Rfam assigns this 89-nucleotide RNA sequence from Paracoccus aminophilus to the family "Glycine riboswitch aptamer".
RNA sequence: UGGUGGAAGACGGGAGACGCUGGCGCAAGUCAGGGCCGAAGGAGCAACCGCCCCGGUAAACUCUCAGGCAAAAAGACCGCCUUCCAUAA
Dot-bracket structure: .....((((.(((......((((......)))).(((((..(((...((.....))....))))).))).......))).)))).....
The organism belongs to Paracoccus aminophilus, within Bacteria. Pairs were carried over by alignment from the consensus structure.